[Rfam]
RNA: Bacterial RNase P class A
Organism: Prevotella sp. CAG:891
RNA sequence: AAAGUUGAACGGCUUGUCGCGUGUAUUCACAGGCCUGUUAAGGGUUUGUGUGGUGCAGGAGGAAAGUCCGGGCAGCAUAGGGCAUUCCGCUUCUUAAUGGGAAGUCGUCCGUGAGGGUGAAUUAGUGCAGAAGAAAAUAACCGCUUGUCUGCCGAAUUAAGCGUUUCUCCUUUUAGGUUUGAAACCUUACAUUCGUUGUAGUUAUGAGUAAGGGUGAGAAGGUGAGGUAAGAGCUCACCAGUCGUGUGGUGACACACGGGCUGUGUACAUCGGAAGCUGAAAGUUCAUGUAUACCAACGUCAGAGGGCUGCUCGUCCGAGUUCCCGAUUUUAAUCGAGUGAGCACGUUGGAGGGUAGAACGAUAGAGCGUAUUGGCAACAAUGCGCGCGGAUAAAUGACAGGCACGACUUUUAGUCGUACAGAACCCGGCUUAUAGUUUGGCUUUUUCU
Numbered sequence: 001a002a003a004g005u006u007g008a009a010c011g012g013c014u015u016g017u018c019g020c021g022u023g024u025a026u027u028c029a030c031a032g033g034c035c036u037g038u039u040a041a042g043g044g045u046u047u048g049u050g051u052g053g054u055g056c057a058g059g060a061g062g063a064a065a066g067u068c069c070g071g072g073c074a075g076c077a078u079a080g081g082g083c084a085u086u087c088c089g090c091u092u093c094u095u096a097a098u099g100g101g102a103a104g105u106c107g108u109c110c111g112u113g114a115g116g117g118u119g120a121a122u123u124a125g126u127g128c129a130g131a132a133g134a135a136a137a138u139a140a141c142c143g144c145u146u147g148u149c150u151g152c153c154g155a156a157u158u159a160a161g162c163g164u165u166u167c168u169c170c171u172u173u174u175a176g177g178u179u180u181g182a183a184a185c186c187u188u189a190c191a192u193u194c195g196u197u198g199u200a201g202u203u204a205u206g207a208g209u210a211a212g213g214g215u216g217a218g219a220a221g222g223u224g225a226g227g228u229a230a231g232a233g234c235u236c237a238c239c240a241g242u243c244g245u246g247u248g249g250u251g252a253c254a255c256a257c258g259g260g261c262u263g264u265g266u267a268c269a270u271c272g273g274a275a276g277c278u279g280a281a282a283g284u285u286c287a288u289g290u291a292u293a294c295c296a297a298c299g300u301c302a303g304a305g306g307g308c309u310g311c312u313c314g315u316c317c318g319a320g321u322u323c324c325c326g327a328u329u330u331u332a333a334u335c336g337a338g339u340g341a342g343c344a345c346g347u348u349g350g351a352g353g354g355u356a357g358a359a360c361g362a363u364a365g366a367g368c369g370u371a372u373u374g375g376c377a378a379c380a381a382u383g384c385g386c387g388c389g390g391a392u393a394a395a396u397g398a399c400a401g402g403c404a405c406g407a408c409u410u411u412u413a414g415u416c417g418u419a420c421a422g423a424a425c426c427c428g429g430c431u432u433a434u435a436g437u438u439u440g441g442c443u444u445u446u447u448c449u
Stems, first nucleotide, its partner, number of pairs: 001445010011434001012403007020059001022057006064432003068429005073279004085275005090104005105120001107118004121270001125268005141213002143209006221239006241261001242259007283360004294350005309344007367386008